[Rfam]
RNA sequence: CAACACAACUCUGGAGAGACCGGCCGGCCGCGAGGCGGGAGCCGGCGCCGAAGGGGCACGAAGCCGGCGUUCAUCGGAACGCCGCCGCUUCCAAACUCUCAGGCAAAAGGACAGAGGGGCAAGC
Numbered sequence: 001c002a003a004c005a006c007a008a009c010u011c012u013g014g015a016g017a018g019a020c021c022g023g024c025c026g027g028c029c030g031c032g033a034g035g036c037g038g039g040a041g042c043c044g045g046c047g048c049c050g051a052a053g054g055g056g057c058a059c060g061a062a063g064c065c066g067g068c069g070u071u072c073a074u075c076g077g078a079a080c081g082c083c084g085c086c087g088c089u090u091c092c093a094a095a096c097u098c099u100c101a102g103g104c105a106a107a108a109g110g111a112c113a114g115a116g117g118g119g120c121a122a123g124c
Stems, first nucleotide, its partner, number of pairs: 006119001009116005020045004047104003050100002054098003060091005
Dot-bracket structure: .....(..(((((......((((..................)))).(((((..(((...(((((......................)))))....))))).))).......)))))..).....

Rfam assigns this 124-nucleotide sequence from Pseudoxanthomonas helianthi to the family "Glycine riboswitch aptamer". NCBI's taxonomy places the organism under Bacteria, Pseudomonadati, Pseudomonadota, Lysobacteraceae, Pseudoxanthomonas. Its family is annotated with glycine biosynthetic process in the Gene Ontology.